[Rfam]
RNA sequence: AAUAUCUUUAAAUCAGUCCUGUGAGGCUGGCAAGAUAAUCAUGGAAAGUAUUUUCACAUAGUGAUGGAAUUCGUGUGACUUCUUGCUGACGCAGGAAGUCAUUUUUUAU
Numbered sequence: 001a002a003u004a005u006c007u008u009u010a011a012a013u014c015a016g017u018c019c020u021g022u023g024a025g026g027c028u029g030g031c032a033a034g035a036u037a038a039u040c041a042u043g044g045a046a047a048g049u050a051u052u053u054u055c056a057c058a059u060a061g062u063g064a065u066g067g068a069a070u071u072c073g074u075g076u077g078a079c080u081u082c083u084u085g086c087u088g089a090c091g092c093a094g095g096a097a098g099u100c101a102u103u104u105u106u107u108a109u
Stems, first nucleotide, its partner, number of pairs: 003037006013030006044072003049067001052064002057061001073104001075102012
Rfam assigns this 109-nucleotide RNA from Alkaliphilus serpentinus to the family "PyrR binding site". Taxonomically the source falls in Alkaliphilus (Bacteria, Bacillati, Bacillota, Clostridia). The base pairs follow the family's consensus structure, which is taken from published work.